A member of the RNA family "skipping-rope RNA", 87 nucleotides long. The family's RNA type in Rfam is small RNA. Rfam's curators put it in the seed alignment.
RNA sequence: CGAAUUUGAGGGCUGAAAGGGUUGCAGCCGCCCCUUACGCUCUGCGUAAGGUUAGGAGAUGUGGAAGUUACUGUCCCACCAAAUUCA
Numbered sequence: 001c002g003a004a005u006u007u008g009a010g011g012g013c014u015g016a017a018a019g020g021g022u023u024g025c026a027g028c029c030g031c032c033c034c035u036u037a038c039g040c041u042c043u044g045c046g047u048a049a050g051g052u053u054a055g056g057a058g059a060u061g062u063g064g065a066a067g068u069u070a071c072u073g074u075c076c077c078a079c080c081a082a083a084u085u086c087a
Stems, first nucleotide, its partner, number of pairs: 002086007011029005020072003031056001033051008061079004